[Rfam]
RNA: c-di-GMP-I riboswitch aptamer
Organism: Neobacillus bataviensis
RNA sequence: CGUACGAAAGGGCAGCACCAUUGAAAGAUGGUUACGCAAAACUAUAGGGGCUAAGGUCUAUGGACUAUGCUUGCCAGUUACCGAA
Number, nucleotide and partner (000 for none) at each position: 001c000002g000003u000004a000005c000006g000007a000008a000009a000010g000011g000012g037013c036014a000015g000016c000017a032018c031019c030020a029021u028022u027023g000024a000025a000026a000027g022028a021029u020030g019031g018032u017033u000034a000035c000036g013037c012038a000039a000040a079041a078042c077043u076044a000045u000046a000047g075048g074049g071050g070051c069052u000053a000054a000055g000056g065057u064058c063059u000060a000061u000062g000063g058064a057065c056066u000067a000068u000069g051070c050071u049072u000073g000074c048075c047076a043077g042078u041079u040080a000081c000082c000083g000084a000085a000